[Rfam]
RNA sequence: GAUAUGAAAUGUAAAAAUACAAUUAGAUUGGCAGUCACAAUGCAAAUGUAAUAUUUGUCAGUAAUCUUCCUACUCAAAUUGUUAUUCUUUUCAUAGAAAUCA
Dot-bracket structure: ...((((((.(..........(((..............)))((((((.....))))))............(....)..........).))))))........
A member of the RNA family "azaaromatic riboswitch aptamer (yjdF RNA)" from Staphylococcus epidermidis, 102 nucleotides long.
It scores 45 bits against the family's covariance model.
Lineage of the source: Bacteria > Bacillati > Bacillota > Staphylococcus > Staphylococcus epidermidis.
The family's consensus secondary structure is taken from published work.